[Rfam]
RNA sequence: UUCUUAUCAAGAGAGGCAGAGGGACUGGCCCUAUGAAGCCUCAGCAACCGGUUCAUAACGAGUGAAGAUCUGGUGGUUAUGAUAUUUGCUAAGUUUAAAGCGAAACCUAGGUAAGGU
Numbered sequence: 001u002u003c004u005u006a007u008c009a010a011g012a013g014a015g016g017c018a019g020a021g022g023g024a025c026u027g028g029c030c031c032u033a034u035g036a037a038g039c040c041u042c043a044g045c046a047a048c049c050g051g052u053u054c055a056u057a058a059c060g061a062g063u064g065a066a067g068a069u070c071u072g073g074u075g076g077u078u079a080u081g082a083u084a085u086u087u088g089c090u091a092a093g094u095u096u097a098a099a100g101c102g103a104a105a106c107c108u109a110g111g112u113a114a115g116g117u
Stems, first nucleotide, its partner, number of pairs: 002116007013042005021031003026084002043077001045075002048073002050070004081106001086103005
RNA: SAM riboswitch aptamer (S box leader)